[Rfam]
Nucleotides: 046
Stems, first nucleotide, its partner, number of pairs: 001018002005016004033046005
Number, partner (000 for none) and nucleotide at each position: 001018c002017g003000u004000g005016c006015a007014g008013g009000a010000c011000g012000a013008c014007c015006u016005g017002c018001g019000c020000c021000u022000c023000g024000a025000u026000a027000c028000a029000c030000a031000c032000c033046a034045a035044g036043g037042g038000a039000c040000g041000g042037c043036c044035c045034u046033u
About this RNA
The record is a 46-nucleotide RNA sequence from Aminobacter sp. MSH1, which matches "Guanidine-II riboswitch aptamer (mini-ykkC)" in Rfam. Gene Ontology term of the family: regulation of gene expression. The family's consensus secondary structure is taken from published work. The literature on the family includes a 2017 paper in Cell Chem Biol by Huang et al., "The Structure of the Guanidine-II Riboswitch".